[Rfam]
RNA sequence: GGCUUUUUUUGCCCAGGCGGAGCUCGACCGCAAACCGAAACUCUAAUCCACUUUGUUGAUGCCCAUAAAAGUGUUUUUGGUGUCGAGCCGAUUUGUCAGCAGUUACAGAUUGCACCA
Numbered sequence: 001g002g003c004u005u006u007u008u009u010u011g012c013c014c015a016g017g018c019g020g021a022g023c024u025c026g027a028c029c030g031c032a033a034a035c036c037g038a039a040a041c042u043c044u045a046a047u048c049c050a051c052u053u054u055g056u057u058g059a060u061g062c063c064c065a066u067a068a069a070a071g072u073g074u075u076u077u078u079g080g081u082g083u084c085g086a087g088c089c090g091a092u093u094u095g096u097c098a099g100c101a102g103u104u105a106c107a108g109a110u111u112g113c114a115c116c117a
Base pairs, nucleotide, nucleotide: 017031018030019029020028078117079116080115081114082113089112090111092109093108094107095106096105098103
Rfam assigns this 117-nucleotide RNA sequence from Cellvibrio polysaccharolyticus to the family "ALIL pseudoknot".
The source organism's lineage runs through Bacteria, Pseudomonadati, Gammaproteobacteria, Cellvibrionaceae and Cellvibrio.
On this family, see Mazauric et al., J Biol Chem 2008: "Apical loop-internal loop RNA pseudoknots: a new type of stimulator of -1 translational frameshifting in bacteria".
It is annotated as a cis-regulatory element.
The base pairs follow the family's consensus structure, which is taken from published work.